A member of the RNA family "Bacterial RNase P class B" from Mycoplasma testudineum, 282 nucleotides long. It scores 218 bits against the family's covariance model. Ribonuclease P (RNase P) is a ubiquitous endoribonuclease, found in archaea, bacteria and eukarya as well as chloroplasts and mitochondria. Its best characterised activity is the generation of mature 5'-ends of tRNAs by cleaving the 5'-leader elements of precursor-tRNAs. Cellular RNase Ps are ribonucleoproteins. RNA from bacterial RNase Ps retains its catalytic activity in the absence of the protein subunit, i.e. it is a ribozyme. The base pairs follow the family's consensus structure, which is taken from published work.

RNA sequence: UGCAUCGGUCAAUUGCUGGUUAAUUAACUAGAGGAAAGUCCGCUCUAGCACGAGCUGCGAUGCUCGUAGUGUUUGUGUAGGAUCAAAUAAAUCCUAGCAAGGUGACUUGACGACAAGUGCCACAGAGACGAGAAAUGUGAAACGCGGUAAACUCCGCAAGCUAGAAACCCAAAUUAUGGUAGGGGAACCUAAAUAGUCAGAAUUGAAUGUCUAUUAGGAAAAUGAAAAUUUUAGAUAAAUAAUUGACACAUAUUUAAUAUGUACAAAAAGCGGCUUAUAGAU
Numbered sequence: 001u002g003c004a005u006c007g008g009u010c011a012a013u014u015g016c017u018g019g020u021u022a023a024u025u026a027a028c029u030a031g032a033g034g035a036a037a038g039u040c041c042g043c044u045c046u047a048g049c050a051c052g053a054g055c056u057g058c059g060a061u062g063c064u065c066g067u068a069g070u071g072u073u074u075g076u077g078u079a080g081g082a083u084c085a086a087a088u089a090a091a092u093c094c095u096a097g098c099a100a101g102g103u104g105a106c107u108u109g110a111c112g113a114c115a116a117g118u119g120c121c122a123c124a125g126a127g128a129c130g131a132g133a134a135a136u137g138u139g140a141a142a143c144g145c146g147g148u149a150a151a152c153u154c155c156g157c158a159a160g161c162u163a164g165a166a167a168c169c170c171a172a173a174u175u176a177u178g179g180u181a182g183g184g185g186a187a188c189c190u191a192a193a194u195a196g197u198c199a200g201a202a203u204u205g206a207a208u209g210u211c212u213a214u215u216a217g218g219a220a221a222a223u224g225a226a227a228a229u230u231u232u233a234g235a236u237a238a239a240u241a242a243u244u245g246a247c248a249c250a251u252a253u254u255u256a257a258u259a260u261g262u263a264c265a266a267a268a269a270g271c272g273g274c275u276u277a278u279a280g281a282u
Base pairs, nucleotide, nucleotide: 004282005281006280007278008247009246010245011244012243013242014241016031017030018029019028020027021026036276037275038274040273041272042271043270044269045164046163047162048161049160050067051066052065053064054063055062073159074158075157076156077155078096079095080094081093082092083091097111098109099108100107101106112154113153117152118151119148120147121146168184169183170182188218189217190216191215193214194213195212219232220231221230222229223228249261250260251259252258253257